[Rfam]
RNA sequence: UUGGUACCGGCUCACGCGCGUUGCACCAGGCACGCGCGACCCGGCGACC
Numbered sequence: 001u002u003g004g005u006a007c008c009g010g011c012u013c014a015c016g017c018g019c020g021u022u023g024c025a026c027c028a029g030g031c032a033c034g035c036g037c038g039a040c041c042c043g044g045c046g047a048c049c
Base pairs, nucleotide, nucleotide: 003049004048005047007044008043009042010041015038016037017036018035019034020033021032023031024030

This 49-nucleotide RNA sequence from Nocardioides jishulii belongs to the Rfam family "L31-Actinobacteria ribosomal protein leader". The match comes from Rfam's covariance-model search (40 bits).